[Rfam]
RNA sequence: ACCGCGUACUUACCUGCUAUAUAGUAGGUGAGAUAUAUGUAUCUUAGCUACUAUGUAGUAGGUACGUACGCGGUUU
Numbered sequence: 001a002c003c004g005c006g007u008a009c010u011u012a013c014c015u016g017c018u019a020u021a022u023a024g025u026a027g028g029u030g031a032g033a034u035a036u037a038u039g040u041a042u043c044u045u046a047g048c049u050a051c052u053a054u055g056u057a058g059u060a061g062g063u064a065c066g067u068a069c070g071c072g073g074u075u076u
Stems, first nucleotide, its partner, number of pairs: 001074009011064005017058011029046003033042003
mir-7563 microRNA precursor family: a 76-nucleotide RNA sequence from Ameiurus melas. Rfam 15.1 lists 362 matches to the family in 2 species. Its family is annotated with miRNA-mediated post-transcriptional gene silencing and RISC complex in the Gene Ontology. The family's consensus secondary structure was predicted with RNAalifold. It scores 83 bits against the family's covariance model.